[Rfam]
RNA sequence: AUGCGGUGAUGAUAUCUUAAAUGGUGUUCUCACUGAUUAUCGAAUGAAGACAUGAAUUUCCUUGGCUGUGUCUGAGCAU
Numbered sequence: 001a002u003g004c005g006g007u008g009a010u011g012a013u014a015u016c017u018u019a020a021a022u023g024g025u026g027u028u029c030u031c032a033c034u035g036a037u038u039a040u041c042g043a044a045u046g047a048a049g050a051c052a053u054g055a056a057u058u059u060c061c062u063u064g065g066c067u068g069u070g071u072c073u074g075a076g077c078a079u
Base pairs, nucleotide, nucleotide: 001079002078003077004076
RNA: Small nucleolar RNA SNORD53/SNORD92
Organism: Rhinopomastus cyanomelas